A member of the RNA family "Nematode sRNA ceN72-3_ceN74-2" from Oesophagostomum dentatum, 118 nucleotides long.
The source organism's lineage runs through Eukaryota, Opisthokonta, Chromadorea, Strongyloidea and Oesophagostomum.
The family has 13 seed sequences and 521 matches in Rfam 15.1.
A search with the family's covariance model found it, with a score of 44 bits.
RNA sequence: CCAUGCGGUCCGGCGUCAGUGGGUUAUCAGUACAUGGCGAUUCCGCAAGGAAAAGCAAGUCCGCAAGGACACCCCGCCCGCAAGGGCACCCUUCCCAUUGGCAUCACUUGACCGUAAC
Numbered sequence: 001c002c003a004u005g006c007g008g009u010c011c012g013g014c015g016u017c018a019g020u021g022g023g024u025u026a027u028c029a030g031u032a033c034a035u036g037g038c039g040a041u042u043c044c045g046c047a048a049g050g051a052a053a054a055g056c057a058a059g060u061c062c063g064c065a066a067g068g069a070c071a072c073c074c075c076g077c078c079c080g081c082a083a084g085g086g087c088a089c090c091c092u093u094c095c096c097a098u099u100g101g102c103a104u105c106a107c108u109u110g111a112c113c114g115u116a117a118c
Stems, first nucleotide, its partner, number of pairs: 004116001006114005012105002015102009033050001035048001037046003076087004